[Rfam]
RNA: Manganese Mn2+ riboswitch aptamer (yybP-ykoY)
Organism: Rheinheimera sp. F8
RNA sequence: CUUCCUGACUUGGGGGAGUAAUCGCCAUAAGCACCCUGCUUAUGGGUUGCCGUCAACAUACUUGUGCCAAUGCACAUGGCGGCAGCGGGACUUGCAACAGCAAUGUUCUGAUGAGACCUGAGACAGCGUCGUGGCCCAAUGCGGGAGCCACAACGUUGUCUUUGGCUUAAUCCCGCUGAGUACCC
Numbered sequence: 001c002u003u004c005c006u007g008a009c010u011u012g013g014g015g016g017a018g019u020a021a022u023c024g025c026c027a028u029a030a031g032c033a034c035c036c037u038g039c040u041u042a043u044g045g046g047u048u049g050c051c052g053u054c055a056a057c058a059u060a061c062u063u064g065u066g067c068c069a070a071u072g073c074a075c076a077u078g079g080c081g082g083c084a085g086c087g088g089g090a091c092u093u094g095c096a097a098c099a100g101c102a103a104u105g106u107u108c109u110g111a112u113g114a115g116a117c118c119u120g121a122g123a124c125a126g127c128g129u130c131g132u133g134g135c136c137c138a139a140u141g142c143g144g145g146a147g148c149c150a151c152a153a154c155g156u157u158g159u160c161u162u163u164g165g166c167u168u169a170a171u172c173c174c175g176c177u178g179a180g181u182a183c184c185c
Stems, first nucleotide, its partner, number of pairs: 026044005046086010063076005087184002090181004